[Rfam]
RNA: FMN riboswitch aptamer (RFN element)
RNA sequence: AGUCUGUUUCAGGGCGGGGUGAAAGUCCCCACUGGCGGUACAGUCCGCGAACCGACGCAAGUCGGUCGAAUGGGUGCGAUUCCCAUACCAACGGUAUAGUCCGGAUGAAAGAAACGGCGU
Numbered sequence: 001a002g003u004c005u006g007u008u009u010c011a012g013g014g015c016g017g018g019g020u021g022a023a024a025g026u027c028c029c030c031a032c033u034g035g036c037g038g039u040a041c042a043g044u045c046c047g048c049g050a051a052c053c054g055a056c057g058c059a060a061g062u063c064g065g066u067c068g069a070a071u072g073g074g075u076g077c078g079a080u081u082c083c084c085a086u087a088c089c090a091a092c093g094g095u096a097u098a099g100u101c102c103g104g105a106u107g108a109a110a111g112a113a114a115c116g117g118c119g120u
Stems, first nucleotide, its partner, number of pairs: 004117007017029003031100002033090002035048004043088002051066003070086005092103003